The family of this 79-nucleotide sequence from Syrrhaptes paradoxus is "mir-27 microRNA precursor family". Gene Ontology terms of the family: RISC complex and miRNA-mediated post-transcriptional gene silencing. The literature on the family includes a 2005 paper in Genes Dev by Chen et al., "The developmental miRNA profiles of zebrafish as determined by small RNA cloning". Taxonomically the source falls in Syrrhaptes (Eukaryota, Chordata, Sauria, Pteroclidae).
RNA sequence: CCGGGGGGCAGGGCUUAGCCCACCUGUGAACAGAGUUUCCGCCGCGUCGUGUUCACAGUGGCUAAGUUCCGCUCCCCGC
Dot-bracket structure: ..........((((((((((.....(((((((.................)))))))...))))))))))..........